[Rfam]
RNA sequence: CAGACACUUAUUUUUAUCCAGUUUCUUCUCAAGGUGAAGAUAACUCUUUGUAAAUGUCAUAAAGUCAUGUAGAAUGCAGUAACUUUCUGUUCACGCUUUCCAAAUGAAAAGGAUGGCUCCUUCUAUUAAUGACAUUU
Numbered sequence: 001c002a003g004a005c006a007c008u009u010a011u012u013u014u015u016a017u018c019c020a021g022u023u024u025c026u027u028c029u030c031a032a033g034g035u036g037a038a039g040a041u042a043a044c045u046c047u048u049u050g051u052a053a054a055u056g057u058c059a060u061a062a063a064g065u066c067a068u069g070u071a072g073a074a075u076g077c078a079g080u081a082a083c084u085u086u087c088u089g090u091u092c093a094c095g096c097u098u099u100c101c102a103a104a105u106g107a108a109a110a111g112g113a114u115g116g117c118u119c120c121u122u123c124u125a126u127u128a129a130u131g132a133c134a135u136u137u
Stems, first nucleotide, its partner, number of pairs: 003058004008053004020045004024040005077131002080128003096111004